[Rfam]
RNA sequence: UUGCGCGCUGGAGAUGGCAUUCUCCCUGUUCUUCAAAUUCUCCAUAUUGUCCACUAGCCGCCCUUGACGGCUGAUAACGCCUGCUUCGCC
Numbered sequence: 001u002u003g004c005g006c007g008c009u010g011g012a013g014a015u016g017g018c019a020u021u022c023u024c025c026c027u028g029u030u031c032u033u034c035a036a037a038u039u040c041u042c043c044a045u046a047u048u049g050u051c052c053a054c055u056a057g058c059c060g061c062c063c064u065u066g067a068c069g070g071c072u073g074a075u076a077a078c079g080c081c082u083g084c085u086u087c088g089c090c
Stems, first nucleotide, its partner, number of pairs: 010025004016081003020077002060071003